The record is a 90-nucleotide RNA sequence from Desulfohalobium retbaense, which matches "Selenocysteine transfer RNA" in Rfam.
A search with the family's covariance model found it, with a score of 84 bits.
NCBI's taxonomy places the organism under Bacteria, Thermodesulfobacteriota, Desulfovibrionales, Desulfohalobiaceae, Desulfohalobium retbaense.

RNA sequence: GGAAGCGUUUCGUCACCGGUGUGGCGCCUGGACUUCAAAUCCAGUGGGCGGCUGCCAAGUCGCCGGUAGGUUCGACUCCUAUACGCUUCC
Numbered sequence: 001g002g003a004a005g006c007g008u009u010u011c012g013u014c015a016c017c018g019g020u021g022u023g024g025c026g027c028c029u030g031g032a033c034u035u036c037a038a039a040u041c042c043a044g045u046g047g048g049c050g051g052c053u054g055c056c057a058a059g060u061c062g063c064c065g066g067u068a069g070g071u072u073c074g075a076c077u078c079c080u081a082u083a084c085g086c087u088u089c090c
Stems, first nucleotide, its partner, number of pairs: 001090008011026006028044005047064005067081004